[Rfam]
RNA sequence: UCAACCUAAAACAAUGAAAGCCCUGCCUCUCUCUCAUCCUUACGGUUCCUAGACCGCGCCAGUAGAAUCAGAUUCAAGCAUUUUAU
Numbered sequence: 001u002c003a004a005c006c007u008a009a010a011a012c013a014a015u016g017a018a019a020g021c022c023c024u025g026c027c028u029c030u031c032u033c034u035c036a037u038c039c040u041u042a043c044g045g046u047u048c049c050u051a052g053a054c055c056g057c058g059c060c061a062g063u064a065g066a067a068u069c070a071g072a073u074u075c076a077a078g079c080a081u082u083u084u085a086u
Stems, first nucleotide, its partner, number of pairs: 034066002039062002041058001043056005
The family of this 86-nucleotide RNA sequence from Peribacillus saganii is "BsrC".
From the family's description: The 301 nucleotide sequence from Kouji Nakamura has been trimmed to a highly conserved ~85 nucleotide long core to form this family.
A reference for the family is Saito et al. (2008), "Novel small RNA-encoding genes in the intergenic regions of Bacillus subtilis", Gene.
The organism belongs to Peribacillus, within Bacteria.